RNA sequence: CAGCGUGAUAGAGGCGCGGUUCCGAAAGAGUAGACGGCCGAGGAGGUAUCCCGUGACGCCGUCGGAAAGGUCGGACCGCCGAAACGGCGCACCCGACGGGGUGCGUUGGUUGGGGGUGCGGAGAAGAUCCGCACCACUCCCGCCGCAGGCCACUGCGGCGGAGGAGCUGUCGGCUGU
Numbered sequence: 001c002a003g004c005g006u007g008a009u010a011g012a013g014g015c016g017c018g019g020u021u022c023c024g025a026a027a028g029a030g031u032a033g034a035c036g037g038c039c040g041a042g043g044a045g046g047u048a049u050c051c052c053g054u055g056a057c058g059c060c061g062u063c064g065g066a067a068a069g070g071u072c073g074g075a076c077c078g079c080c081g082a083a084a085c086g087g088c089g090c091a092c093c094c095g096a097c098g099g100g101g102u103g104c105g106u107u108g109g110u111u112g113g114g115g116g117u118g119c120g121g122a123g124a125a126g127a128u129c130c131g132c133a134c135c136a137c138u139c140c141c142g143c144c145g146c147a148g149g150c151c152a153c154u155g156c157g158g159c160g161g162a163g164g165a166g167c168u169g170u171c172g173g174c175u176g177u
Stems, first nucleotide, its partner, number of pairs: 006172006016079006023073003033063006083111003086107009112138002115135008140161007
The family of this 177-nucleotide RNA sequence from Sutterella parvirubra is "Lysine riboswitch aptamer". The base pairs follow the family's consensus structure, which is taken from published work. Its family is annotated with lysine biosynthetic process in the Gene Ontology. The match comes from Rfam's covariance-model search (85 bits).